Annotation
The record is a 154-nucleotide RNA sequence from Castor canadensis, which matches "Small nucleolar RNA SNORA51" in Rfam. Rfam classes the family as an H/ACA-box small nucleolar RNA. About the family: ACA51 is a member of the H/ACA class of snoRNA that guide the sites of modification of uridines to pseudouridines. The base pairs follow the family's consensus structure, which was predicted with PFOLD. The organism belongs to Castor, within Eukaryota.
[Rfam]
Nucleotides: 154
Base pairs, nucleotide, nucleotide: 002081003080004079005078008075022063026059028057029056094146095145096144097143098142109131110130112128113127114126115125116124117123
Number, partner (000 for none) and nucleotide at each position: 001000g002081g003080c004079u005078u006000c007000c008075u009000g010000g011000g012000g013000u014000u015000u016000a017000c018000c019000a020000c021000a022063g023000g024000c025000u026059g027000c028057a029056u030000u031000c032000u033000u034000u035000c036000a037000c038000u039000g040000a041000c042000c043000a044000u045000a046000u047000a048000g049000c050000a051000u052000u053000c054000u055000u056029a057028u058000a059026c060000u061000g062000a063022c064000c065000a066000u067000a068000u069000a070000g071000a072000a073000a074000g075008a076000u077000a078005a079004g080003g081002c082000a083000a084000a085000g086000u087000a088000a089000a090000c091000c092000u093000g094146c095145u096144c097143c098142a099000c100000g101000u102000a103000c104000a105000c106000c107000u108000a109131a110130g111000c112128c113127c114126a115125g116124g117123c118000c119000c120000u121000g122000u123117g124116c125115c126114u127113g128112g129000u130110c131109u132000g133000u134000a135000u136000u137000g138000u139000u140000a141000a142098u143097g144096g145095g146094g147000a148000a149000a150000c151000a152000c153000a154000u